[Rfam]
RNA sequence: AUUGUCCAAGGAUAGAAAGGCAGCUAUCACACCCUUGUGGUCUUAAAGAAAUGCCGGAGUUGUCGCCCGGCUGGACAAA
Numbered sequence: 001a002u003u004g005u006c007c008a009a010g011g012a013u014a015g016a017a018a019g020g021c022a023g024c025u026a027u028c029a030c031a032c033c034c035u036u037g038u039g040g041u042c043u044u045a046a047a048g049a050a051a052u053g054c055c056g057g058a059g060u061u062g063u064c065g066c067c068c069g070g071c072u073g074g075a076c077a078a079a
Stems, first nucleotide, its partner, number of pairs: 002078007011028005019064004030048001031041003053071005